RNA sequence: GCGCAAUUUUUAUUUUUCACAGGGUCUCUUUUGAGUCCCAAAGUAAAAUUUUUGGAACCUUCGCAAGAAGGUA
Numbered sequence: 001g002c003g004c005a006a007u008u009u010u011u012a013u014u015u016u017u018c019a020c021a022g023g024g025u026c027u028c029u030u031u032u033g034a035g036u037c038c039c040a041a042a043g044u045a046a047a048a049u050u051u052u053u054g055g056a057a058c059c060u061u062c063g064c065a066a067g068a069a070g071g072u073a
Stems, first nucleotide, its partner, number of pairs: 022039003026035003057072006
Shown here is a 73-nucleotide RNA from Panagrolaimus superbus, a member of the family "SmY spliceosomal RNA". Taxonomically the source falls in Panagrolaimus (Eukaryota, Opisthokonta, Metazoa, Protostomia). The family has 61 seed sequences and 408 matches in Rfam 15.1.